This 171-nucleotide sequence from Alkalihalobacillus alcalophilus belongs to the Rfam family "glmS glucosamine-6-phosphate activated ribozyme aptamer". The match comes from Rfam's covariance-model search (130 bits). The family's RNA type in Rfam is riboswitch. The literature on the family includes a 2004 paper in Nature by Winkler et al., "Control of gene expression by a natural metabolite-responsive ribozyme". NCBI's taxonomy places the organism under Bacteria, Bacilli, Caryophanales, Bacillaceae, Alkalihalobacillus alcalophilus. The base pairs follow the family's consensus structure, which is taken from published work.
RNA sequence: AUCAUAAUUAAAGCGCCAGGACUGCUUUUGAACGGAAAGAAAGGCAGUUGACGAGGUGAGGGUUUAUCGAUUUUUUCGGCGGAUGCCCUCCGGUUGCCGCAUGACGACCGUUAAGCUUUUGUAAAAAACGAAGGGGUGACUCUUUGGACAAAAUCAAAAGCUGCAUGCCCA
Numbered sequence: 001a002u003c004a005u006a007a008u009u010a011a012a013g014c015g016c017c018a019g020g021a022c023u024g025c026u027u028u029u030g031a032a033c034g035g036a037a038a039g040a041a042a043g044g045c046a047g048u049u050g051a052c053g054a055g056g057u058g059a060g061g062g063u064u065u066a067u068c069g070a071u072u073u074u075u076u077c078g079g080c081g082g083a084u085g086c087c088c089u090c091c092g093g094u095u096g097c098c099g100c101a102u103g104a105c106g107a108c109c110g111u112u113a114a115g116c117u118u119u120u121g122u123a124a125a126a127a128a129c130g131a132a133g134g135g136g137u138g139a140c141u142c143u144u145u146g147g148a149c150a151a152a153a154u155c156a157a158a159a160g161c162u163g164c165a166u167g168c169c170c171a
Stems, first nucleotide, its partner, number of pairs: 020049008029040001058090005067079004091110006115161007129146007